[Rfam]
RNA sequence: CAUACAAACUGGUCUGUCGCGCUGAAAAGUGAGGAAAGUCCGGGCAACAUAGAGCAUCCUGCUUCCUAACAGGAAGGUCUCGCAAAACGGGAACAGAAAGUGCCACAGAGAAUAUACCGCCCCGGCUCUGCUGGGGUAAGGGUGAAAACGUGAGGUAAGAGCUCACGGCUUUGUCGGGCGACCGGCAUCGCGGUAAACCUCAGGAGUUGAAAGACCAAAUAAACCGGAGCUUGAGGGCUGCUCGCUCAAUUCCGGAGGGUAGGUUGCUAGAGAUGAAUGGUGACAUUCAUUCGAGAUAAAUGACAGAUAUCAAUCUGACUUGAUCGGAUUGAGAAACAGAACCCGGCUUAUACGUUUGUAUUUUUU
Number, nucleotide and partner (000 for none) at each position: 001c000002a361003u360004a359005c358006a357007a356008a355009c354010u000011g351012g308013u307014c306015u305016g304017u303018c302019g000020c031021g030022c029023u028024g000025a000026a000027a000028a023029g022030u021031g020032a000033g000034g000035a000036a349037a348038g347039u000040c346041c345042g344043g343044g342045c209046a208047a207048c206049a000050u000051a000052g243053a242054g241055c240056a000057u205058c204059c203060u202061g201062c076063u075064u074065c073066c072067u000068a000069a000070c000071a000072g066073g065074a064075a063076g062077g094078u092079c091080u090081c089082g000083c000084a000085a000086a000087a000088c000089g081090g080091g079092a078093a000094c077095a200096g199097a000098a000099a000100g198101u197102g194103c193104c192105a000106c000107a000108g000109a000110g000111a000112a000113u000114a000115u000116a000117c141118c140119g137120c136121c135122c134123c133124g132125g131126c130127u000128c000129u000130g126131c125132u124133g123134g122135g121136g120137u119138a000139a000140g118141g117142g000143u000144g000145a000146a000147a000148a000149c167150g166151u165152g164153a163154g162155g000156u000157a000158a000159g000160a000161g000162c154163u153164c152165a151166c150167g149168g000169c000170u000171u000172u187173g186174u185175c184176g183177g182178g000179c000180g000181a000182c177183c176184g175185g174186c173187a172188u000189c000190g000191c000192g104193g103194u102195a000196a000197a101198c100199c096200u095201c061202a060203g059204g058205a057206g048207u047208u046209g045210a000211a000212a000213g265214a264215c263216c262217a000218a000219a000220u000221a000222a000223a000224c255225c254226g253227g252228a251229g000230c000231u000232u000233g000234a000235g247236g246237g245238c244239u000240g055241c054242u053243c052244g238245c237246u236247c235248a000249a000250u000251u228252c227253c226254g225255g224256a000257g000258g000259g000260u000261a000262g216263g215264u214265u213266g000267c000268u000269a000270g000271a000272g291273a290274u289275g288276a287277a286278u285279g284280g000281u000282g000283a000284c279285a278286u277287u276288c275289a274290u273291u272292c000293g000294a000295g000296a000297u000298a000299a000300a000301u000302g018303a017304c016305a015306g014307a013308u012309a000310u000311c000312a000313a000314u000315c000316u000317g000318a000319c000320u000321u000322g000323a000324u000325c000326g000327g000328a000329u000330u000331g000332a000333g000334a000335a000336a000337c000338a000339g000340a000341a000342c044343c043344c042345g041346g040347c038348u037349u036350a000351u011352a000353c000354g009355u008356u007357u006358g005359u004360a003361u002362u000363u000364u000365u000366u000
RNA: Bacterial RNase P class A
Organism: Solitalea canadensis